[Rfam]
This 122-nucleotide sequence from Massilia sp. belongs to the Rfam family "Burkholderia RNA 11". Pairs were carried over by alignment from the consensus structure, which was predicted with RNAfold. Co-purified with Hfq, expression confirmed by Northern blot. Predicted target marZ. Overlaps coding sequence. On this family, see Ramos et al., Genomics 2013: "Experimental identification of small non-coding regulatory RNAs in the opportunistic human pathogen Burkholderia cenocepacia J2315". Gene Ontology term of the family: protein binding. It scores 58 bits against the family's covariance model. Rfam classes the family as a small RNA.

RNA sequence: GCAAUCUAAAAUUUUCCAGCCAGAACCGCACCGUGUUCCUGUCGAUGCUCGGCAAUUCCUGGUUCUGGUUCUAUGGCGCGCUGCUCCUGUCGCAGUUCCCGCUGUACGCCAAGGAUUACCUG
Numbered sequence: 001g002c003a004a005u006c007u008a009a010a011a012u013u014u015u016c017c018a019g020c021c022a023g024a025a026c027c028g029c030a031c032c033g034u035g036u037u038c039c040u041g042u043c044g045a046u047g048c049u050c051g052g053c054a055a056u057u058c059c060u061g062g063u064u065c066u067g068g069u070u071c072u073a074u075g076g077c078g079c080g081c082u083g084c085u086c087c088u089g090u091c092g093c094a095g096u097u098c099c100c101g102c103u104g105u106a107c108g109c110c111a112a113g114g115a116u117u118a119c120c121u122g
Base pairs, nucleotide, nucleotide: 010049012047014045015044017041018040019039022037023036025034026033051121052120055117057115058114059113060112062110064104067099068098071095072094074092075091076090077089078088080087